RNA sequence: UUCGUUGAAGGGCAAACUGUCGGCGACGGCAGGGCGCAAAGCCUCCGGGCUCCAAGGAGCUAGCGGGGCCGCCAGC
Numbered sequence: 001u002u003c004g005u006u007g008a009a010g011g012g013c014a015a016a017c018u019g020u021c022g023g024c025g026a027c028g029g030c031a032g033g034g035c036g037c038a039a040a041g042c043c044u045c046c047g048g049g050c051u052c053c054a055a056g057g058a059g060c061u062a063g064c065g066g067g068g069c070c071g072c073c074a075g076c
Stems, first nucleotide, its partner, number of pairs: 012037002017032006041069003045066003048061005
Dot-bracket structure: ...........((...((((((....))))))...))...(((.((((((((....)))))..)))))).......
A member of the RNA family "c-di-GMP-I riboswitch aptamer" from Sphingomonas sp. KC8, 76 nucleotides long. Its family is annotated with cyclic-di-GMP binding in the Gene Ontology. Lineage of the source: Bacteria > Pseudomonadota > Alphaproteobacteria > Sphingomonadaceae > Sphingomonas. GEMM was predicted in a large-scale screen for bacterial structured RNA regulatory elements. Genes associated with GEMM are involved in a diverse array of functions, including chemotaxis regulation, signal transduction, secretion and chitin.